Bacterial RNase P class A: a 348-nucleotide sequence from Megasphaera sp. AM44-1BH. It is annotated as a ribozyme. The source organism's lineage runs through Bacteria, Bacillota, Negativicutes, Veillonellales and Megasphaera. Ribonuclease P (RNase P) is a ubiquitous endoribonuclease, found in archaea, bacteria and eukarya as well as chloroplasts and mitochondria. Its best characterised activity is the generation of mature 5'-ends of tRNAs by cleaving the 5'-leader elements of precursor-tRNAs. Cellular RNase Ps are ribonucleoproteins. RNA from bacterial RNase Ps retains its catalytic activity in the absence of the protein subunit, i.e. it is a ribozyme.
RNA sequence: UGAGUAUGAAUGACAAUCGCUGGCCUCCGGGUCAGAGGAAAGUCCGAGCUCCGCAGGGCAGGAUGCCGGAUAACGUCCGGCGAAGGCGACUUCAGGGAUAGUGCCACAGAAAUGUGUACCGCCGCGCAAGCGGUAAGGGUGGAACGGUGCGGUAAGAGCGCACCAGCAGUACAGUAAUGUGCUGGCUAGGUAAACCCCAUCUGGAGCAAGACCGAAUAGGGAAGGGAUGAGGCGGCCCGCUGAUCUUCCGGGUUGUGUCGCUUGAACAUGCUGGCAACAGUAUGUCUAGAUAGAUGAUUGUCGCUGCCGCAAGGCAGAACAAAACUCGGCUUACUGAUUACUCAUCAU
Numbered sequence: 001u002g003a004g005u006a007u008g009a010a011u012g013a014c015a016a017u018c019g020c021u022g023g024c025c026u027c028c029g030g031g032u033c034a035g036a037g038g039a040a041a042g043u044c045c046g047a048g049c050u051c052c053g054c055a056g057g058g059c060a061g062g063a064u065g066c067c068g069g070a071u072a073a074c075g076u077c078c079g080g081c082g083a084a085g086g087c088g089a090c091u092u093c094a095g096g097g098a099u100a101g102u103g104c105c106a107c108a109g110a111a112a113u114g115u116g117u118a119c120c121g122c123c124g125c126g127c128a129a130g131c132g133g134u135a136a137g138g139g140u141g142g143a144a145c146g147g148u149g150c151g152g153u154a155a156g157a158g159c160g161c162a163c164c165a166g167c168a169g170u171a172c173a174g175u176a177a178u179g180u181g182c183u184g185g186c187u188a189g190g191u192a193a194a195c196c197c198c199a200u201c202u203g204g205a206g207c208a209a210g211a212c213c214g215a216a217u218a219g220g221g222a223a224g225g226g227a228u229g230a231g232g233c234g235g236c237c238c239g240c241u242g243a244u245c246u247u248c249c250g251g252g253u254u255g256u257g258u259c260g261c262u263u264g265a266a267c268a269u270g271c272u273g274g275c276a277a278c279a280g281u282a283u284g285u286c287u288a289g290a291u292a293g294a295u296g297a298u299u300g301u302c303g304c305u306g307c308c309g310c311a312a313g314g315c316a317g318a319a320c321a322a323a324a325c326u327c328g329g330c331u332u333a334c335u336g337a338u339u340a341c342u343c344a345u346c347a348u
Base pairs, nucleotide, nucleotide: 001344002343003342004341005340006339010335012302013301014300015299016298017297018296020035021034022033023032024031025030040332041331042330044329045328046327047326048325049206050205051204052203056238057237058236059235061202062201063200064199065198066080067079068078069077070076081095082093083092084091085090096197097196101195102194103191104190105189119138120137121134122133123132124131125130146164147163148162149161150160151159166186167184168183169182170181171180172179173178210259211258212257213255220249221248222247223246224245225244231241232240233239266285267284268283269282270281271280272279273278